The record is a 574-nucleotide RNA from Raphanus sativus, which matches "MIR824 microRNA precursor family" in Rfam. Gene Ontology terms of the family: RISC complex and miRNA-mediated post-transcriptional gene silencing.

RNA sequence: CUCGAGUUGUCUCUCAUGUCUAGACCAUUUGUGAGAAGGGAUUUUUGUUUGCACCAUUCACCCCCGCCUUUCUCUAAGAUAUGCAAUAAGUAUUAUUCUCACUUGAGAAAAAACAGUCUUAUAUUUUAGAUGCUUUUUUUUGUUCACCAAAACGUUAAGAAACCAGGUGACCAUCUCCCUAAAACCAUCCAAAAUGAAAGGUCUAGUCGUCUAGAGGCUAAUCUGUAGGUCACAGCCAUUAGAGCCGCGUCCACCUCUAGAUUAAAGUCUGUUACUUCUUCCAUCAAAAUCUGAUCCUUGAAGAUUUACGUACAUAAGUAAGUAGACAGAGUGCAUACAUAACAUGUUCAUUAAUAUUUCCUCCUAACCAGAUAAAAUCAUUUACACUUUGGAUGCCAAACUUAUGUCUAGAGUUAUAGAGUUAUCAAUAUUAACUAAGAAUUUAUAUCUUGCACUACUUAGCUACACUAGUUUACUUGAUAAUAAUUUGGGAAGUGGGGGAGAGGGGGGGGAGGUGUUGUAUUAUUCCCUUCUCAUUCGAUGGUCUAGAUGUGCGAGGUGACUCUCCUGGAGG
Numbered sequence: 001c002u003c004g005a006g007u008u009g010u011c012u013c014u015c016a017u018g019u020c021u022a023g024a025c026c027a028u029u030u031g032u033g034a035g036a037a038g039g040g041a042u043u044u045u046u047g048u049u050u051g052c053a054c055c056a057u058u059c060a061c062c063c064c065c066g067c068c069u070u071u072c073u074c075u076a077a078g079a080u081a082u083g084c085a086a087u088a089a090g091u092a093u094u095a096u097u098c099u100c101a102c103u104u105g106a107g108a109a110a111a112a113a114c115a116g117u118c119u120u121a122u123a124u125u126u127u128a129g130a131u132g133c134u135u136u137u138u139u140u141u142g143u144u145c146a147c148c149a150a151a152a153c154g155u156u157a158a159g160a161a162a163c164c165a166g167g168u169g170a171c172c173a174u175c176u177c178c179c180u181a182a183a184a185c186c187a188u189c190c191a192a193a194a195u196g197a198a199a200g201g202u203c204u205a206g207u208c209g210u211c212u213a214g215a216g217g218c219u220a221a222u223c224u225g226u227a228g229g230u231c232a233c234a235g236c237c238a239u240u241a242g243a244g245c246c247g248c249g250u251c252c253a254c255c256u257c258u259a260g261a262u263u264a265a266a267g268u269c270u271g272u273u274a275c276u277u278c279u280u281c282c283a284u285c286a287a288a289a290u291c292u293g294a295u296c297c298u299u300g301a302a303g304a305u306u307u308a309c310g311u312a313c314a315u316a317a318g319u320a321a322g323u324a325g326a327c328a329g330a331g332u333g334c335a336u337a338c339a340u341a342a343c344a345u346g347u348u349c350a351u352u353a354a355u356a357u358u359u360c361c362u363c364c365u366a367a368c369c370a371g372a373u374a375a376a377a378u379c380a381u382u383u384a385c386a387c388u389u390u391g392g393a394u395g396c397c398a399a400a401c402u403u404a405u406g407u408c409u410a411g412a413g414u415u416a417u418a419g420a421g422u423u424a425u426c427a428a429u430a431u432u433a434a435c436u437a438a439g440a441a442u443u444u445a446u447a448u449c450u451u452g453c454a455c456u457a458c459u460u461a462g463c464u465a466c467a468c469u470a471g472u473u474u475a476c477u478u479g480a481u482a483a484u485a486a487u488u489u490g491g492g493a494a495g496u497g498g499g500g501g502a503g504a505g506g507g508g509g510g511g512g513a514g515g516u517g518u519u520g521u522a523u524u525a526u527u528c529c530c531u532u533c534u535c536a537u538u539c540g541a542u543g544g545u546c547u548a549g550a551u552g553u554g555c556g557a558g559g560u561g562a563c564u565c566u567c568c569u570g571g572a573g574g
Base pairs, nucleotide, nucleotide: 001573002572003571004565005564006563007562008561009560010559011558012557013556015554016553017552018551019550020549021548022547023546024545025544026543027542028541029540031537032536033535034534035533036532037531038530039529040528041527051518052517053516054515055514063509068505069504070503073502074501075500
A search with the family's covariance model found it, with a score of 205 bits.